[Rfam]
Shown here is a 153-nucleotide sequence from Cysteiniphilum litorale, a member of the family "FMN riboswitch aptamer (RFN element)". Taxonomically the source falls in Cysteiniphilum (Bacteria, Pseudomonadati, Pseudomonadota, Thiotrichales). Its family is annotated with FMN binding in the Gene Ontology. A search with the family's covariance model found it, with a score of 121 bits. From the family's description: The RFN element is a highly conserved domain that is found frequently in the 5'-untranslated regions of prokaryotic mRNAs that encode for flavin mononucleotide (FMN) biosynthesis and transport proteins. This element is a metabolite-dependent riboswitch that directly binds FMN in the absence of proteins.
RNA sequence: CUAGUUCUUCAGGGCGGGGUGAAACUCCCCACCGGUGGUAAUUCUAUAAGCAUUUAGAAAAGCCCACGAGCGCUUUGAUUUAAAGGUCAAAGGUCAGCAGAUCUGGUGAGAUUCCAGAGCCGACGGUUAUAGUCCGGAUGAAAGAAGAAGUAA
Numbered sequence: 001c002u003a004g005u006u007c008u009u010c011a012g013g014g015c016g017g018g019g020u021g022a023a024a025c026u027c028c029c030c031a032c033c034g035g036u037g038g039u040a041a042u043u044c045u046a047u048a049a050g051c052a053u054u055u056a057g058a059a060a061a062g063c064c065c066a067c068g069a070g071c072g073c074u075u076u077g078a079u080u081u082a083a084a085g086g087u088c089a090a091a092g093g094u095c096a097g098c099a100g101a102u103c104u105g106g107u108g109a110g111a112u113u114c115c116a117g118a119g120c121c122g123a124c125g126g127u128u129a130u131a132g133u134c135c136g137g138a139u140g141a142a143a144g145a146a147g148a149a150g151u152a153a
Base pairs, nucleotide, nucleotide: 003151005149006148007147008146009145010144017029018028019027031133032132033122034121035067036066037065038064062120063119070098071097102118103117104116105115106114124136125135126134